Small nucleolar RNA SNORA15: a 144-nucleotide sequence from Orycteropus afer. It is annotated as an H/ACA-box small nucleolar RNA. Rfam describes the family as follows. ACA15 is a member of the H/ACA class of snoRNA that guide the sites of modification of uridines to pseudouridines. For this family Rfam cites "RNomics: an experimental approach that identifies 201 candidates for novel, small, non-messenger RNAs in mouse" (Huttenhofer et al., EMBO J, 2001). Taxonomically the source falls in Orycteropus afer (Eukaryota, Mammalia, Eutheria, Tubulidentata).

RNA sequence: ACUUGGCUGGAUACUACAUUCUCUUUUUAUCAAUUAUUUACAUAGCCAGACACCAUGUAAAAGUAUGAUGUUCCCAUUAAAAUGCUUAUGAUGUGUGCUAACUUUUUUUUUUAUGGCAUAUGAUUAUUAAAGGUGAAUACAAAU
Numbered sequence: 001a002c003u004u005g006g007c008u009g010g011a012u013a014c015u016a017c018a019u020u021c022u023c024u025u026u027u028u029a030u031c032a033a034u035u036a037u038u039u040a041c042a043u044a045g046c047c048a049g050a051c052a053c054c055a056u057g058u059a060a061a062a063g064u065a066u067g068a069u070g071u072u073c074c075c076a077u078u079a080a081a082a083u084g085c086u087u088a089u090g091a092u093g094u095g096u097g098c099u100a101a102c103u104u105u106u107u108u109u110u111u112u113a114u115g116g117c118a119u120a121u122g123a124u125u126a127u128u129a130a131a132g133g134u135g136a137a138u139a140c141a142a143a144u
Stems, first nucleotide, its partner, number of pairs: 001058002004055003014045003019040001071137003074133002077130004089126004093121008